[Rfam]
RNA sequence: GAUUAUGUCAAAUUGCCUGUGAUAAUUUAAAAAAAAAAAAAAUUAUCACAGGCAAUUUGACAUGGUCUA
Numbered sequence: 001g002a003u004u005a006u007g008u009c010a011a012a013u014u015g016c017c018u019g020u021g022a023u024a025a026u027u028u029a030a031a032a033a034a035a036a037a038a039a040a041a042a043u044u045a046u047c048a049c050a051g052g053c054a055a056u057u058u059g060a061c062a063u064g065g066u067c068u069a
Stems, first nucleotide, its partner, number of pairs: 005063021

The family of this 69-nucleotide RNA sequence from Tenebrio molitor is "mir-2 microRNA precursor family". A reference for the family is Lee and Ambros (2001), "An extensive class of small RNAs in Caenorhabditis elegans", Science. The match comes from Rfam's covariance-model search (47 bits).